[Rfam]
A member of the RNA family "tRNA" from Aspergillus felis, 88 nucleotides long. The family's consensus secondary structure is taken from published work.

RNA sequence: GCACCUAUGGCUCAGUGGUAGAGCAUUCCACUUGUACAGCCAAGAAAUGGCGAUGGAAAGGUCCGCGGUUCGAUCCCGCGUGGGUGCA
Numbered sequence: 001g002c003a004c005c006u007a008u009g010g011c012u013c014a015g016u017g018g019u020a021g022a023g024c025a026u027u028c029c030a031c032u033u034g035u036a037c038a039g040c041c042a043a044g045a046a047a048u049g050g051c052g053a054u055g056g057a058a059a060g061g062u063c064c065g066c067g068g069u070u071c072g073a074u075c076c077c078g079c080g081u082g083g084g085u086g087c088a
Stems, first nucleotide, its partner, number of pairs: 001087007010024004026058005064080005
NCBI's taxonomy places the organism under Eukaryota, Eurotiomycetes, Eurotiales, Aspergillus, Aspergillus subgen. Fumigati.
A search with the family's covariance model found it, with a score of 59 bits.